The family of this 121-nucleotide RNA is "DUF3800-I RNA". The sequence is in the family's curated seed alignment. From the family's description: Actinobacteria, Firmicutes, Fusobacteria, Proteobacteria (1 example), Tenericutes (2 examples). It is annotated as a small RNA.
[Rfam]
RNA sequence: UAAGGAUACAGGCAAGUGUGCACUGUACACGUCUGGGCACUGAUGUUUAUAUUAAGCGUACUGUAAGUACGCCAGACCAGAUGGGAAGUAGUCGUAAACGCGGCUACUUUUUUUAUUUCUU
Numbered sequence: 001u002a003a004g005g006a007u008a009c010a011g012g013c014a015a016g017u018g019u020g021c022a023c024u025g026u027a028c029a030c031g032u033c034u035g036g037g038c039a040c041u042g043a044u045g046u047u048u049a050u051a052u053u054a055a056g057c058g059u060a061c062u063g064u065a066a067g068u069a070c071g072c073c074a075g076a077c078c079a080g081a082u083g084g085g086a087a088g089u090a091g092u093c094g095u096a097a098a099c100g101c102g103g104c105u106a107c108u109u110u111u112u113u114u115a116u117u118u119c120u121u
Base pairs, nucleotide, nucleotide: 007027008026009025010024011023012021013020014019030083031082032081033080034079035078040075041074042073043052044051045050056072057071058070059069060068061067084111085110086109087108088107089106090105091104092103093102094101095100